[Rfam]
This 116-nucleotide sequence from Clostridium sp. CAG:964 belongs to the Rfam family "FMN riboswitch aptamer (RFN element)". About the family: The RFN element is a highly conserved domain that is found frequently in the 5'-untranslated regions of prokaryotic mRNAs that encode for flavin mononucleotide (FMN) biosynthesis and transport proteins. This element is a metabolite-dependent riboswitch that directly binds FMN in the absence of proteins. In Bacillus subtilis, the riboswitch most likely controls gene expression by causing premature transcription termination within the 5' untranslated region of the ribDEAHT operon and precluding access to the ribosome-binding site of ypaA mRNA.The FMN riboswitch structure, reported in present an FMN-bound six-stem junction, adopts a butterfly-like scaffold, stapled together by opposingly directed but nearly identically folded peripheral domains.
RNA sequence: UAUUUGUUUCGGGGCGGGGUGUAAUUCCCCACCGGUGGUAAAGCCCACGAGCGUUAGAACGCUGAUUUGGUGAAAUUCCAAAGCCGACGGUAUAGUCCGGAUGAAAGAAACUUAUU
Numbered sequence: 001u002a003u004u005u006g007u008u009u010c011g012g013g014g015c016g017g018g019g020u021g022u023a024a025u026u027c028c029c030c031a032c033c034g035g036u037g038g039u040a041a042a043g044c045c046c047a048c049g050a051g052c053g054u055u056a057g058a059a060c061g062c063u064g065a066u067u068u069g070g071u072g073a074a075a076u077u078c079c080a081a082a083g084c085c086g087a088c089g090g091u092a093u094a095g096u097c098c099g100g101a102u103g104a105a106a107g108a109a110a111c112u113u114a115u116u
Stems, first nucleotide, its partner, number of pairs: 003114001006111005017029003031096002033086002035048004043084002051062003066082005088099003